[Rfam]
The record is a 599-nucleotide part of an RNA from Meloidogyne artiellia, which matches "Eukaryotic large subunit ribosomal RNA" in Rfam.
RNA sequence: GAAGACCCUGUUGAGCUUGACUCUAGUCUGACUUUGUGAAGAAUCAUGAGAGGUGUAGCAUAAGUGGGAGCUCGAAAGGGCGCCAGUGAAAUACCACUACUUUCAUCGAUUCCUUACUUAAUCGGUAGAACGGGAGUUGUGCCCCCUCAAAAGGGCCUUCGUUUUGGUGUUAAGAUCGGUCACUCGGUGGCCGGUUGACUCGCGCCGAUGACAUUGUCAGGCGGGGAGUUUGACUGGGGCGGUACAUCUGUCAAAUCGUAACGCAGGUGUCCUAAGGCGAGCUCAGAGAGGACGGAAACCUCUCGUAGAGCAAAAAGGCAAAUGCUUACUUGAUCUUGAUUUUCAGUACGAAUACAGACCGCGAAAGCGUGGCUUAUCGAUCCUUUUGAGUUAUGGAAAGUUUCCAGCAAGAGGUGUCAGAAAAGUUACCACAGGGAUAACUGGCUUGUGGCGGCCAAGCGUCCAUAGCGACGUCGCUUUUUGAUCCUUCGAUGUCGGCUCUUCCUAUCAUUGCGAAGCAGAAUUCGCCAAGCGUUGGAUUGUUCACCCACCAAUAGGGAACGUGAGCUGGGUUUAGACCGUCGUGAGACAGGUUAGUU
Numbered sequence: 001g002a003a004g005a006c007c008c009u010g011u012u013g014a015g016c017u018u019g020a021c022u023c024u025a026g027u028c029u030g031a032c033u034u035u036g037u038g039a040a041g042a043a044u045c046a047u048g049a050g051a052g053g054u055g056u057a058g059c060a061u062a063a064g065u066g067g068g069a070g071c072u073c074g075a076a077a078g079g080g081c082g083c084c085a086g087u088g089a090a091a092u093a094c095c096a097c098u099a100c101u102u103u104c105a106u107c108g109a110u111u112c113c114u115u116a117c118u119u120a121a122u123c124g125g126u127a128g129a130a131c132g133g134g135a136g137u138u139g140u141g142c143c144c145c146c147u148c149a150a151a152a153g154g155g156c157c158u159u160c161g162u163u164u165u166g167g168u169g170u171u172a173a174g175a176u177c178g179g180u181c182a183c184u185c186g187g188u189g190g191c192c193g194g195u196u197g198a199c200u201c202g203c204g205c206c207g208a209u210g211a212c213a214u215u216g217u218c219a220g221g222c223g224g225g226g227a228g229u230u231u232g233a234c235u236g237g238g239g240c241g242g243u244a245c246a247u248c249u250g251u252c253a254a255a256u257c258g259u260a261a262c263g264c265a266g267g268u269g270u271c272c273u274a275a276g277g278c279g280a281g282c283u284c285a286g287a288g289a290g291g292a293c294g295g296a297a298a299c300c301u302c303u304c305g306u307a308g309a310g311c312a313a314a315a316a317g318g319c320a321a322a323u324g325c326u327u328a329c330u331u332g333a334u335c336u337u338g339a340u341u342u343u344c345a346g347u348a349c350g351a352a353u354a355c356a357g358a359c360c361g362c363g364a365a366a367g368c369g370u371g372g373c374u375u376a377u378c379g380a381u382c383c384u385u386u387u388g389a390g391u392u393a394u395g396g397a398a399a400g401u402u403u404c405c406a407g408c409a410a411g412a413g414g415u416g417u418c419a420g421a422a423a424a425g426u427u428a429c430c431a432c433a434g435g436g437a438u439a440a441c442u443g444g445c446u447u448g449u450g451g452c453g454g455c456c457a458a459g460c461g462u463c464c465a466u467a468g469c470g471a472c473g474u475c476g477c478u479u480u481u482u483g484a485u486c487c488u489u490c491g492a493u494g495u496c497g498g499c500u501c502u503u504c505c506u507a508u509c510a511u512u513g514c515g516a517a518g519c520a521g522a523a524u525u526c527g528c529c530a531a532g533c534g535u536u537g538g539a540u541u542g543u544u545c546a547c548c549c550a551c552c553a554a555u556a557g558g559g560a561a562c563g564u565g566a567g568c569u570g571g572g573u574u575u576a577g578a579c580c581g582u583c584g585u586g587a588g589a590c591a592g593g594u595u596a597g598u599u
Base pairs, nucleotide, nucleotide: 007435008434009433010432012431013430014427015426016425017424018423020229021228022227023226027221028220029219030218031217032216036117037116038115039114041112042111043110044109045108046106047105048104049103050102051101052100063098064097065096066095067094070081071080121209122208123207124206125205131202132201133200134199139157141156142155143154144153174196175195176194177193178192179191180190181189232245233243234242235241246268247267248266249265250264251263271372272371277329279327280326281325282324283309284308286304287303288302289301290300291299310319311318334358335357336356339353340352341351342350360369361368362367383413384412385411386410387409388408394406395405396404444485446483448482450478451477452476453475454474455473459469460468496571497569498568499567500566501563502560503559504558505557506556509534513528514527515526516525517524536550537549538548540546577595578594579593580592581590582589583588